[Rfam]
RNA sequence: CGCGCUCCAUGACGGGAAUCGCCAAAACGCCCCCGGCACCGGGCGCUUCCCAGAUCCCGCGCG
Numbered sequence: 001c002g003c004g005c006u007c008c009a010u011g012a013c014g015g016g017a018a019u020c021g022c023c024a025a026a027a028c029g030c031c032c033c034c035g036g037c038a039c040c041g042g043g044c045g046c047u048u049c050c051c052a053g054a055u056c057c058c059g060c061g062c063g
Stems, first nucleotide, its partner, number of pairs: 001063005014051005020045004029037003